[Rfam]
RNA sequence: CCUGCCGAGGAGCGCUGCGACCCGACCGGUUAUUUCCGGAUGACGGGCCAGGCUCGGCAACGAUCAACGGCGCUCGCAAACC
Number, nucleotide and partner (000 for none) at each position: 001c000002c000003u059004g058005c057006c056007g055008a054009g000010g000011a000012g000013c000014g000015c000016u000017g000018c000019g000020a000021c047022c046023c045024g044025a000026c042027c000028g000029g000030u000031u000032a000033u000034u000035u000036c000037c000038g000039g000040a000041u000042g026043a000044c024045g023046g022047g021048c000049c000050a000051g000052g000053c000054u008055c007056g006057g005058c004059a003060a000061c000062g000063a000064u000065c000066a000067a000068c000069g000070g000071c000072g000073c000074u000075c000076g000077c000078a000079a000080a000081c000082c000